[Rfam]
RNA sequence: GGUCUUGAGUGUCAGCGCACAGCCCCGGCUUGCUGACCGGCAACCCUCCAACUGCGGUGGGGUGCCCCGGGUGACGACCUGGUUCCGGUCAUUCGAUGCGGAGCAAGCGCACGGC
Number, nucleotide and partner (000 for none) at each position: 001g079002g078003u077004c076005u000006u000007g000008a000009g038010u000011g037012u036013c035014a034015g033016c032017g000018c000019a000020c000021a030022g029023c000024c000025c000026c000027g000028g000029c022030u021031u000032g016033c015034u014035g013036a012037c011038c009039g066040g065041c064042a000043a000044c062045c061046c060047u000048c057049c056050a000051a000052c000053u000054g000055c000056g049057g048058u000059g000060g046061g045062g044063u000064g041065c040066c039067c000068c000069g000070g000071g000072u000073g000074a000075c000076g004077a003078c002079c001080u000081g000082g104083u103084u102085c101086c100087g099088g097089u096090c095091a000092u000093u000094c000095g090096a089097u088098g000099c087100g086101g085102a084103g083104c082105a000106a000107g000108c000109g000110c000111a000112c000113g000114g000115c000